[Rfam]
The family of this 78-nucleotide RNA from Lotus japonicus is "Small nucleolar RNA R160". It is annotated as a C/D-box small nucleolar RNA. On this family, see Chen et al., Nucleic Acids Res 2003: "The high diversity of snoRNAs in plants: identification and comparative study of 120 snoRNA genes from Oryza sativa". Rfam describes the family as follows. snoR160 is a C/D box small nucleolar RNA, which acts as a methylation guide for 25S ribosomal RNA in plants. snoR160 has been alternatively named snoZ270 in rice. The pairing is the family consensus, mapped onto this sequence. Rfam's curators put it in the seed alignment.
RNA sequence: AGCAAAAUGACGAGGUUUUAAUAUCUGAAUAUCAUGUGGAUUCAUUAUUCAAAUUGCCUUCAAAGUUCUCUGAUUGCU
Numbered sequence: 001a002g003c004a005a006a007a008u009g010a011c012g013a014g015g016u017u018u019u020a021a022u023a024u025c026u027g028a029a030u031a032u033c034a035u036g037u038g039g040a041u042u043c044a045u046u047a048u049u050c051a052a053a054u055u056g057c058c059u060u061c062a063a064a065g066u067u068c069u070c071u072g073a074u075u076g077c078u
Stems, first nucleotide, its partner, number of pairs: 001078005